[Rfam]
RNA sequence: GUGAAAUAAAUCACAUAACAAACAUACACCCCUUUGUUUGAACGUGAACAUUUCUCCCAUCCCCUUUGUGAAAAGAGGCGUCCUAUCUGUCGAGGUUAGGGCGUCUCU
Number, nucleotide and partner (000 for none) at each position: 001g000002u000003g054004a053005a052006a051007u050008a000009a000010a000011u047012c046013a045014c044015a000016u000017a000018a000019c040020a039021a038022a037023c036024a035025u000026a000027c000028a000029c000030c000031c000032c000033u000034u000035u024036g023037u022038u021039u020040g019041a000042a000043c000044g014045u013046g012047a011048a000049c000050a007051u006052u005053u004054c003055u000056c000057c000058c000059a000060u000061c000062c000063c000064c000065u000066u000067u000068g000069u000070g000071a000072a000073a000074a000075g000076a000077g105078g104079c103080g102081u101082c100083c099084u098085a097086u000087c095088u000089g000090u000091c000092g000093a000094g000095g087096u000097u085098a084099g083100g082101g081102c080103g079104u078105c077106u000107c000108u000
RNA: RNA Staph. aureus E (RoxS)